This 108-nucleotide sequence from Sphaeramia orbicularis belongs to the Rfam family "Vault RNA".
It scores 67 bits against the family's covariance model.
Rfam classes the family as a non-coding RNA gene.

RNA sequence: GCACUGGUGUAGCUCAGUGGUUACUUCGACCAUCAAUUCUCACUCGCAGAAUUCGAAUCGUCUCUAUCCCUCUGUGGGAUCGAACCACGGGUGCUGUCCAGUGCUUUU
Numbered sequence: 001g002c003a004c005u006g007g008u009g010u011a012g013c014u015c016a017g018u019g020g021u022u023a024c025u026u027c028g029a030c031c032a033u034c035a036a037u038u039c040u041c042a043c044u045c046g047c048a049g050a051a052u053u054c055g056a057a058u059c060g061u062c063u064c065u066a067u068c069c070c071u072c073u074g075u076g077g078g079a080u081c082g083a084a085c086c087a088c089g090g091g092u093g094c095u096g097u098c099c100a101g102u103g104c105u106u107u108u
Stems, first nucleotide, its partner, number of pairs: 002103006012092004017088004025084005